[Rfam]
RNA sequence: CAUUAAAGGAAAGCGCCAGGUCUGUUUUGAACAGAAGACGAGGAAAGAGCUUAUCGAAAAUUUCGGCGGGUGGCUCUAGGGUCUGCACUCUAAAGACAAGAACAAAGACAAGCUGUGAGGCUUGCAACAAAAACUUGUCGGGCAGUUAG
Numbered sequence: 001c002a003u004u005a006a007a008g009g010a011a012a013g014c015g016c017c018a019g020g021u022c023u024g025u026u027u028u029g030a031a032c033a034g035a036a037g038a039c040g041a042g043g044a045a046a047g048a049g050c051u052u053a054u055c056g057a058a059a060a061u062u063u064c065g066g067c068g069g070g071u072g073g074c075u076c077u078a079g080g081g082u083c084u085g086c087a088c089u090c091u092a093a094a095g096a097c098a099a100g101a102a103c104a105a106a107g108a109c110a111a112g113c114u115g116u117g118a119g120g121c122u123u124g125c126a127a128c129a130a131a132a133a134c135u136u137g138u139c140g141g142g143c144a145g146u147u148a149g
Stems, first nucleotide, its partner, number of pairs: 021035006046077005054066004078091005095139006109124006
RNA: glmS glucosamine-6-phosphate activated ribozyme aptamer
Organism: Tetragenococcus muriaticus